Shown here is an 88-nucleotide sequence from Chinchilla lanigera, a member of the family "small Cajal body-specific RNA 18". The literature on the family includes a 2002 paper in EMBO J by Darzacq et al., "Cajal body-specific small nuclear RNAs: a novel class of 2'-O-methylation and pseudouridylation guide RNAs". Lineage of the source: Eukaryota > Eumetazoa > Rodentia > Hystricomorpha > Chinchilla. It is annotated as a small Cajal body RNA. The match comes from Rfam's covariance-model search (49 bits). Gene Ontology terms of the family: nucleolus, Cajal body and RNA processing.
RNA sequence: AUGGCAGUGAACUAAGUUAAAAAAUUCAUGAGCAAUCUGAGUCUGGGAACCAGAUGAUGGAGCGUGUUGUAGCAACAGACUGAGGCAG
Number, nucleotide and partner (000 for none) at each position: 001a000002u087003g086004g000005c084006a000007g000008u000009g000010a000011a000012c000013u000014a000015a000016g000017u000018u000019a000020a000021a000022a000023a000024a000025u000026u000027c000028a000029u000030g000031a000032g000033c000034a000035a000036u000037c000038u000039g000040a000041g000042u000043c053044u052045g051046g050047g000048a000049a000050c046051c045052a044053g043054a000055u000056g000057a000058u000059g000060g000061a000062g000063c000064g000065u000066g000067u000068u000069g000070u000071a000072g000073c000074a000075a000076c000077a000078g000079a000080c000081u000082g000083a000084g005085g000086c003087a002088g000